[Rfam]
RNA: transfer-messenger RNA
Organism: Myxococcus xanthus
RNA sequence: GGGGGCGACCUGGUUUCGACGGGGGCAUUGAAGUUCGAGACGCGUGCCGAGCUUGUCAGGUAGCUCGUAAAUUCAACCCGGCAAAGACACAAAAGCCAACGACAACGUUGAGCUCGCGCUGGCUGCCUAAAAACAGCCCAUAGUGCGCGGUCCCCCCGCCCUCGGCCUGUGGGGUUGGGACAGACCGUCAUAAUGCAGGCUGGCUGCCGAGGGUGCCUGGACCCGAGGUGGCGAGAUCUUCCCAGGACCGGCUCUGAGUAUCCCGUCCGUGGGAGCCUCAGGGACGUAGCAAAUCGCGGACUACGCACGUAGGGUCGAAGAGCGGACGGCUUUCGGACGCGGGUUCGAUUCCCGCCGCCUCCACUG
Numbered sequence: 001g002g003g004g005g006c007g008a009c010c011u012g013g014u015u016u017c018g019a020c021g022g023g024g025g026c027a028u029u030g031a032a033g034u035u036c037g038a039g040a041c042g043c044g045u046g047c048c049g050a051g052c053u054u055g056u057c058a059g060g061u062a063g064c065u066c067g068u069a070a071a072u073u074c075a076a077c078c079c080g081g082c083a084a085a086g087a088c089a090c091a092a093a094a095g096c097c098a099a100c101g102a103c104a105a106c107g108u109u110g111a112g113c114u115c116g117c118g119c120u121g122g123c124u125g126c127c128u129a130a131a132a133a134c135a136g137c138c139c140a141u142a143g144u145g146c147g148c149g150g151u152c153c154c155c156c157c158g159c160c161c162u163c164g165g166c167c168u169g170u171g172g173g174g175u176u177g178g179g180a181c182a183g184a185c186c187g188u189c190a191u192a193a194u195g196c197a198g199g200c201u202g203g204c205u206g207c208c209g210a211g212g213g214u215g216c217c218u219g220g221a222c223c224c225g226a227g228g229u230g231g232c233g234a235g236a237u238c239u240u241c242c243c244a245g246g247a248c249c250g251g252c253u254c255u256g257a258g259u260a261u262c263c264c265g266u267c268c269g270u271g272g273g274a275g276c277c278u279c280a281g282g283g284a285c286g287u288a289g290c291a292a293a294u295c296g297c298g299g300a301c302u303a304c305g306c307a308c309g310u311a312g313g314g315u316c317g318a319a320g321a322g323c324g325g326a327c328g329g330c331u332u333u334c335g336g337a338c339g340c341g342g343g344u345u346c347g348a349u350u351c352c353c354g355c356c357g358c359c360u361c362c363a364c365u366g
Base pairs, nucleotide, nucleotide: 001362002361003360004359005358006357007356020335021334022333023332024331025330026329029326033323034322035321036320039316040315041314043309044308045307046306047305048067049066050065051064052063054083055082056081057080059078060077120142121138122137123136124135125134150181151180152179153178154177158175159174160173161172165200166199167198168197169196170195203232204231205230206229207228208227211224216246217245218244219243251285253283254282255281258278261274262273263272265301266300267299268298269297270296271295339355340354341353342352343351